[Rfam]
The record is a 145-nucleotide RNA sequence from Triticum turgidum, which matches "small nucleolar RNA snoR135" in Rfam. NCBI's taxonomy places the organism under Eukaryota, Euphyllophyta, Poales, Triticeae, Triticum turgidum. A reference for the family is Chen and Wu (2009), "Mining small RNA sequencing data: a new approach to identify small nucleolar RNAs in Arabidopsis", Nucleic Acids Res. The family's consensus secondary structure was predicted with RNAalifold.
RNA sequence: UUUGCAGGAUAAGUAUGUAUCGGUUAAAUGCCUUUUGUUGUGCAUUUCUUGCCGAAAGUUUUUCCUGCUAUAGUAAUUUGAGGAAAGUGGGUUGUUGGGUUGAGCUGGAUAAUCUCUUUUGCCAACAAUCAUUUUCCUCUCAUUA
Numbered sequence: 001u002u003u004g005c006a007g008g009a010u011a012a013g014u015a016u017g018u019a020u021c022g023g024u025u026a027a028a029u030g031c032c033u034u035u036u037g038u039u040g041u042g043c044a045u046u047u048c049u050u051g052c053c054g055a056a057a058g059u060u061u062u063u064c065c066u067g068c069u070a071u072a073g074u075a076a077u078u079u080g081a082g083g084a085a086a087g088u089g090g091g092u093u094g095u096u097g098g099g100u101u102g103a104g105c106u107g108g109a110u111a112a113u114c115u116c117u118u119u120u121g122c123c124a125a126c127a128a129u130c131a132u133u134u135u136c137c138u139c140u141c142a143u144u145a
Base pairs, nucleotide, nucleotide: 004068005067006066007065008064009063015045016044017043018042019041020040080139081138082137083136084135085134086133087132088131089130090129094126095125096124097123